[Rfam]
RNA sequence: UCGUCAUUACCAAGGCUUUUAGAAUGCAGUUUCUCAUUUGCCAUGGACAUGACCACAAAACAUUUCCCCGAUAGGUUUUUUUCCUGUCAUGUUGGUAGCAUAGCAUUCAGCCUACUGGGAACAUUU
Number, nucleotide and partner (000 for none) at each position: 001u000002c000003g053004u052005c051006a050007u049008u000009a000010c046011c045012a044013a000014g000015g000016c000017u000018u000019u000020u000021a000022g000023a000024a000025u000026g041027c040028a039029g038030u000031u000032u000033c000034u000035c000036a000037u000038u029039u028040g027041c026042c000043a000044u012045g011046g010047a000048c000049a007050u006051g005052a004053c003054c000055a000056c000057a000058a000059a000060a000061c000062a000063u000064u000065u000066c000067c119068c118069c117070g116071a000072u000073a000074g112075g111076u110077u109078u000079u000080u000081u000082u000083c000084c000085u105086g104087u103088c000089a000090u000091g000092u000093u000094g000095g000096u000097a000098g000099c000100a000101u000102a000103g087104c086105a085106u000107u000108c000109a077110g076111c075112c074113u000114a000115c000116u070117g069118g068119g067120a000121a000122c000123a000124u000125u000126u000
RNA: Small nucleolar RNA SNORA32